[Rfam]
RNA sequence: AGCCACGUGGUGGGCACAAAGCGAACUAUUCUUUCGCCUUUUACUAAAGAAUACCGUGUGCUCUCCACAUUUAGUGGCAUACGCUAAUUUUUGGAGAGUCCUCUUCUACUAGAGGGCU
Numbered sequence: 001a002g003c004c005a006c007g008u009g010g011u012g013g014g015c016a017c018a019a020a021g022c023g024a025a026c027u028a029u030u031c032u033u034u035c036g037c038c039u040u041u042u043a044c045u046a047a048a049g050a051a052u053a054c055c056g057u058g059u060g061c062u063c064u065c066c067a068c069a070u071u072u073a074g075u076g077g078c079a080u081a082c083g084c085u086a087a088u089u090u091u092u093g094g095a096g097a098g099u100c101c102u103c104u105u106c107u108a109c110u111a112g113a114g115g116g117c118u
Stems, first nucleotide, its partner, number of pairs: 003077004008067003012063007027053008095118001098117006
Shown here is a 118-nucleotide RNA sequence from Vitis vinifera, a member of the family "U5 spliceosomal RNA". By type it is a spliceosomal small nuclear RNA. On this family, see Zwieb, Nucleic Acids Res 1997: "The uRNA database". It is one of the family's seed sequences. Its family is annotated with spliceosomal tri-snRNP complex assembly and U5 snRNP in the Gene Ontology.